[Rfam]
RNA sequence: ACGCGGCCACAACCCUGGCUAUGGUGUUAACCAGGGAGAAGGGACUAGAGGUUAGAGGAGACCCCGCGUUAAAA
Dot-bracket structure: .(((((((....((((((.(.........))))))).....))......((((......)))))))))......
RNA: Flavivirus DB element